[Rfam]
mir-1302 microRNA precursor family: a 52-nucleotide RNA sequence from Microcebus murinus. A reference for the family is Morin et al. (2008), "Application of massively parallel sequencing to microRNA profiling and discovery in human embryonic stem cells", Genome Res. The base pairs follow the family's consensus structure, which was predicted with WAR.
RNA sequence: UUUUUAGUGUAAGUAUAUCUCAUGCCAUAUUUAGGACAUACUUAUGCUAAAA
Numbered sequence: 001u002u003u004u005u006a007g008u009g010u011a012a013g014u015a016u017a018u019c020u021c022a023u024g025c026c027a028u029a030u031u032u033a034g035g036a037c038a039u040a041c042u043u044a045u046g047c048u049a050a051a052a
Stems, first nucleotide, its partner, number of pairs: 006048007014040003018036003022031001